[Rfam]
RNA: mir-7331 microRNA precursor family
Organism: Monodelphis domestica
RNA sequence: AACCUGACCUCUGAAGCUACAUAGCAGUGAUCAAAUGCAACAUCUCCUAUGGCUCUACGGUCAGUUCU
Number, nucleotide and partner (000 for none) at each position: 001a066002a065003c000004c064005u063006g062007a061008c060009c059010u000011c000012u000013g055014a054015a000016g053017c052018u000019a000020c051021a050022u049023a048024g047025c000026a045027g044028u042029g041030a000031u000032c000033a000034a000035a000036u000037g000038c000039a000040a000041c029042a028043u000044c027045u026046c000047c024048u023049a022050u021051g020052g017053c016054u014055c013056u000057a000058c000059g009060g008061u007062c006063a005064g004065u002066u001067c000068u000